Source information
Small nucleolar RNA R12: an 85-nucleotide RNA from Trifolium medium. The organism belongs to Trifolium, within Eukaryota. About the family: snoR12 is a C/D box small nucleolar RNA, which acts as a methylation guide for 25S ribosomal RNA in plants. snoR12 has been alternatively named snoZ44 in Arabidopsis and snoZ131 in rice. For this family Rfam cites "The high diversity of snoRNAs in plants: identification and comparative study of 120 snoRNA genes from Oryza sativa" (Chen et al., Nucleic Acids Res, 2003).
RNA sequence: UGUUGAAUGAUGAUAAAAAAUCAAUCGGAUUCCCAUUGAUAUUUUCAUACAUGAGAUUAUAAUUAACCAGCUACUUCUGACAACA
Numbered sequence: 001u002g003u004u005g006a007a008u009g010a011u012g013a014u015a016a017a018a019a020a021u022c023a024a025u026c027g028g029a030u031u032c033c034c035a036u037u038g039a040u041a042u043u044u045u046c047a048u049a050c051a052u053g054a055g056a057u058u059a060u061a062a063u064u065a066a067c068c069a070g071c072u073a074c075u076u077c078u079g080a081c082a083a084c085a
Stems, first nucleotide, its partner, number of pairs: 001085005